[Rfam]
RNA sequence: CCAGAGGCUCCAAAGUGCUGUUCGUGCAGGUAGCGUGUGCAGCCGACUACUGCCGGGUCAGCGCUUCGCGAGCCCCCGG
Number, nucleotide and partner (000 for none) at each position: 001c000002c000003a000004g076005a000006g074007g073008c000009u071010c070011c000012a000013a066014a065015g064016u063017g062018c061019u060020g059021u000022u057023c056024g000025u000026g053027c052028a000029g051030g050031u049032a048033g047034c000035g000036u000037g000038u000039g000040c000041a000042g000043c000044c000045g000046a000047c033048u032049a031050c030051u029052g027053c026054c000055g000056g023057g022058u000059c020060a019061g018062c017063g016064c015065u014066u013067c000068g000069c000070g010071a009072g000073c007074c006075c000076c004077c000078g000079g000
Shown here is a 79-nucleotide sequence from Gopherus agassizii, a member of the family "mir-17 microRNA precursor family".
The match comes from Rfam's covariance-model search (52 bits).
Rfam describes the family as follows. This family represents the microRNA (miRNA) precursor mir-17, family, which includes mir-20, mir-91, and mir-103. miRNAs are transcribed as ~70nt precursors (modelled here) and subsequently processed by the Dicer enzyme to give a ~22nt product. In this case the mature sequence comes from the 3' arm of the precursor. The extents of the hairpin precursors are not generally known and are estimated based on hairpin prediction.